[Rfam]
RNA sequence: GGAAGUGUUUGUCACCUGGUGGCGGCCUCGGUCUUCAAAACCGAUGUGCGGUGCGGCGACGCUCCGCAGGUGGGUUCGAUUCCCAUACACUUCC
Numbered sequence: 001g002g003a004a005g006u007g008u009u010u011g012u013c014a015c016c017u018g019g020u021g022g023c024g025g026c027c028u029c030g031g032u033c034u035u036c037a038a039a040a041c042c043g044a045u046g047u048g049c050g051g052u053g054c055g056g057c058g059a060c061g062c063u064c065c066g067c068a069g070g071u072g073g074g075u076u077c078g079a080u081u082c083c084c085a086u087a088c089a090c091u092u093c094c
Base pairs, nucleotide, nucleotide: 001094002093003092004091005090006089007088008087011026012025013024015022016021028044029043030042031041032040047068048067049066050065051064071085072084073083074082